[Rfam]
RNA sequence: UGUUCCCUGGGGUGUUGGCCAGUCGUUAUAGUCCCUCGAGCCUAUGCGCAAUACCCAGGGCGGCCAUUUGCUAGCCGGACCCGUGUGCAUGUCCGUGCGACGGAAAGCCUGACGGUUCGGCUGCGGCCACCCACCUUGAACCAAGGGUUCAAGGGCCAGAAUGACAGCGGCACUCUGGGGAACCC
Numbered sequence: 001u002g003u004u005c006c007c008u009g010g011g012g013u014g015u016u017g018g019c020c021a022g023u024c025g026u027u028a029u030a031g032u033c034c035c036u037c038g039a040g041c042c043u044a045u046g047c048g049c050a051a052u053a054c055c056c057a058g059g060g061c062g063g064c065c066a067u068u069u070g071c072u073a074g075c076c077g078g079a080c081c082c083g084u085g086u087g088c089a090u091g092u093c094c095g096u097g098c099g100a101c102g103g104a105a106a107g108c109c110u111g112a113c114g115g116u117u118c119g120g121c122u123g124c125g126g127c128c129a130c131c132c133a134c135c136u137u138g139a140a141c142c143a144a145g146g147g148u149u150c151a152a153g154g155g156c157c158a159g160a161a162u163g164a165c166a167g168c169g170g171c172a173c174u175c176u177g178g179g180g181a182a183c184c185c
Base pairs, nucleotide, nucleotide: 002183003182004181005180006179007178008177009176010175011174012173013172014171015170018168019167033155034154035153038150039149040148041147042146058132059131060130062128063127064126065125067123075120076119077118078117079116080115081114087108088107092104093103094102095101

Background:
A member of the RNA family "6S / SsrS RNA" from Halomonas chromatireducens, 185 nucleotides long. From the family's description: E. coli 6S RNA was the first non coding RNA to be sequenced, but its function was unknown until recently. It consists of 184 nucleotides that fold into an extended hairpin structure with a large single-stranded internal bulge. The 6S RNA specifically associates with RNA polymerase holoenzyme containing the sigma70 specificity factor. This interaction represses expression from a sigma70-dependent promoter during stationary phase. 6S RNA homologs have recently been identified in most bacterial genomes. The organism belongs to Halomonas, within Bacteria. It is annotated as a non-coding RNA gene. The family's consensus secondary structure is taken from published work.